The record is a 145-nucleotide RNA from Digitaria exilis, which matches "MIR6234 microRNA precursor family" in Rfam. Rfam links the family to the GO terms RISC complex and miRNA-mediated post-transcriptional gene silencing. Taxonomically the source falls in Digitaria (Eukaryota, Streptophyta, Magnoliopsida, Anthephorinae). A search with the family's covariance model found it, with a score of 91 bits. The family's consensus secondary structure was predicted with RNAalifold.
[Rfam]
Nucleotides: 145
Base pairs, nucleotide, nucleotide: 002144004142005141006140007139009137014131015130016129017128018127019126020125021124022123023122024121025120027118028117029116031115032114033113034112035111036109037108038107039106040105041104042103044101045098047096048095049094050093053090054089055088058084060082061081062080063079064077067074068073
Number, partner (000 for none) and nucleotide at each position: 001000c002144u003000c004142u005141u006140u007139u008000c009137c010000a011000a012000g013000c014131g015130u016129a017128a018127g019126u020125g021124u022123g023122u024121u025120u026000u027118u028117c029116u030000g031115u032114u033113u034112g035111g036109g037108c038107u039106a040105a041104a042103g043000a044101u045098g046000u047096a048095u049094g050093c051000c052000u053090u054089g055088a056000a057000a058084g059000a060082a061081a062080c063079a064077c065000u066000c067074c068073a069000c070000a071000a072000c073068u074067g075000u076000u077064g078000u079063u080062g081061u082060u083000u084058c085000c086000u087000u088055u089054u090053g091000a092000g093050g094049u095048a096047u097000u098045c099000u100000u101044a102000c103042c104041u105040u106039u107038a108037g109036c110000a111035u112034c113033a114032a115031g116029a117028g118027a119000c120025g121024a122023a123022c124021a125020c126019a127018c128017u129016u130015g131014u132000g133000c134000g135000u136000a137009g138000a139007a140006a141005a142004g143000a144002a145000a